This 179-nucleotide sequence from Pseudomonas sp. v388 belongs to the Rfam family "Pseudomonas sRNA P1". Pairs were carried over by alignment from the consensus structure, which was predicted with RNAalifold. A search with the family's covariance model found it, with a score of 108 bits. NCBI's taxonomy places the organism under Bacteria, Pseudomonadati, Gammaproteobacteria, Pseudomonadales, Pseudomonas.
RNA sequence: ACCCCCGGUAUUAUUGCUCUGUGGGCUGCAAUCGAGCUUAGCCUUGUUCAUUUUUUUAUACAACUUUACGUUAAAGACAUUAGAUAGGCCGCUCACGCACGAUAUCUACAAAGGCUUCCCCACUGAAAAUGCGCCCCAAAUAGCGGCAAAAAAGGCAUUUCGGGGCAAUUUUGGGGCGG
Numbered sequence: 001a002c003c004c005c006c007g008g009u010a011u012u013a014u015u016g017c018u019c020u021g022u023g024g025g026c027u028g029c030a031a032u033c034g035a036g037c038u039u040a041g042c043c044u045u046g047u048u049c050a051u052u053u054u055u056u057u058a059u060a061c062a063a064c065u066u067u068a069c070g071u072u073a074a075a076g077a078c079a080u081u082a083g084a085u086a087g088g089c090c091g092c093u094c095a096c097g098c099a100c101g102a103u104a105u106c107u108a109c110a111a112a113g114g115c116u117u118c119c120c121c122a123c124u125g126a127a128a129a130u131g132c133g134c135c136c137c138a139a140a141u142a143g144c145g146g147c148a149a150a151a152a153a154g155g156c157a158u159u160u161c162g163g164g165g166c167a168a169u170u171u172u173g174g175g176g177c178g179g
Stems, first nucleotide, its partner, number of pairs: 023100001025098002034092001036090001041089004046085003052079001053077006161179001163177001166174001